[Rfam]
RNA sequence: UGAUCCCUUGCGGGAGAGCCCGGUCUGGCCAACAGACCGGCGCCGAAGGAGCAACCGCCCCGGAAACUCUCAGGCAAAGAGGACCGCAAGGGGGAG
Numbered sequence: 001u002g003a004u005c006c007c008u009u010g011c012g013g014g015a016g017a018g019c020c021c022g023g024u025c026u027g028g029c030c031a032a033c034a035g036a037c038c039g040g041c042g043c044c045g046a047a048g049g050a051g052c053a054a055c056c057g058c059c060c061c062g063g064a065a066a067c068u069c070u071c072a073g074g075c076a077a078a079g080a081g082g083a084c085c086g087c088a089a090g091g092g093g094g095a096g
Base pairs, nucleotide, nucleotide: 006091007090008089009088010087011086012085013084020040021039022038023037024036025035026034042075043074044073045071046070049069050068051067055063056062
Glycine riboswitch aptamer: a 96-nucleotide RNA sequence from Pelagibius litoralis.
Rfam links the family to the GO term glycine biosynthetic process.
This family represents the bacterial glycine riboswitch. Glycine riboswitches usually consist of two metabolite-binding aptamers domains with similar structures in tandem.